[Rfam]
RNA sequence: AGCCUCAUUCUACUUAAGAUGGGCACUGUCAGUCAGUGUCUAGAACUGGUGAAUGUGGCUAAAUUGAGACACAGGUCAUGCUUCCAUCACAGUAGAUGCAUUACAGUGGUGACAAUGAGGCCUGUGACAUUU
Numbered sequence: 001a002g003c004c005u006c007a008u009u010c011u012a013c014u015u016a017a018g019a020u021g022g023g024c025a026c027u028g029u030c031a032g033u034c035a036g037u038g039u040c041u042a043g044a045a046c047u048g049g050u051g052a053a054u055g056u057g058g059c060u061a062a063a064u065u066g067a068g069a070c071a072c073a074g075g076u077c078a079u080g081c082u083u084c085c086a087u088c089a090c091a092g093u094a095g096a097u098g099c100a101u102u103a104c105a106g107u108g109g110u111g112a113c114a115a116u117g118a119g120g121c122c123u124g125u126g127a128c129a130u131u132u
Base pairs, nucleotide, nucleotide: 002059003058004057006055007054008053020042021041022040023039024038025037026036071125072124073123074122075121085111086110087109088108089107090106

Shown here is a 132-nucleotide RNA from Microtus ochrogaster, a member of the family "Small nucleolar RNA SNORA1". Gene Ontology terms of the family: RNA processing and nucleolus. The organism belongs to Microtus, within Eukaryota. Rfam describes the family as follows. ACA1 is a member of the H/ACA class of snoRNA that guide the sites of modification of uridines to pseudouridines. It is annotated as an H/ACA-box small nucleolar RNA.